A member of the RNA family "malK-I RNA", 178 nucleotides long.
RNA sequence: UUGAUUGCGCGUACAGCUCUCCAUUUCUAAGCUGUGCGCAGCAUUAACAAGGAGGAAAUGUGUAUCCCCAGGCUCGGGGUGCGGCAGUGUGGAGACCUGUCGUAAAAGCGGCGCGGCGUCAUGCCGGCCGUGAGUCCGUCCAGGCGAAGGCCGGGCGGACGGAGCCGGAAGUAUGGCA
Numbered sequence: 001u002u003g004a005u006u007g008c009g010c011g012u013a014c015a016g017c018u019c020u021c022c023a024u025u026u027c028u029a030a031g032c033u034g035u036g037c038g039c040a041g042c043a044u045u046a047a048c049a050a051g052g053a054g055g056a057a058a059u060g061u062g063u064a065u066c067c068c069c070a071g072g073c074u075c076g077g078g079g080u081g082c083g084g085c086a087g088u089g090u091g092g093a094g095a096c097c098u099g100u101c102g103u104a105a106a107a108g109c110g111g112c113g114c115g116g117c118g119u120c121a122u123g124c125c126g127g128c129c130g131u132g133a134g135u136c137c138g139u140c141c142a143g144g145c146g147a148a149g150g151c152c153g154g155g156c157g158g159a160c161g162g163a164g165c166c167g168g169a170a171g172u173a174u175g176g177c178a
Stems, first nucleotide, its partner, number of pairs: 009039010066079004071166005080104008089096002108131005114126003134160008143152003

Pairs were carried over by alignment from the consensus structure, which is taken from published work. Rfam's curators put it in the seed alignment.